[Rfam]
RNA sequence: CAAAAGGCUCUUUUCAGAGCCACUACUACAGUCAUAAAAAGGUGA
Number, nucleotide and partner (000 for none) at each position: 001c000002a000003a000004a000005a000006g021007g020008c019009u018010c017011u016012u000013u000014u000015c000016a011017g010018a009019g008020c007021c006022a000023c000024u000025a000026c000027u000028a000029c000030a000031g000032u000033c000034a000035u000036a000037a000038a000039a000040a000041g000042g000043u000044g000045a000
The family of this 45-nucleotide RNA from Ailuropoda melanoleuca is "Histone 3' UTR stem-loop".
The family's RNA type in Rfam is cis-regulatory element.
The literature on the family includes a 1999 paper in Gene by Dominski and Marzluff, "Formation of the 3' end of histone mRNA".
The base pairs follow the family's consensus structure, which is taken from published work.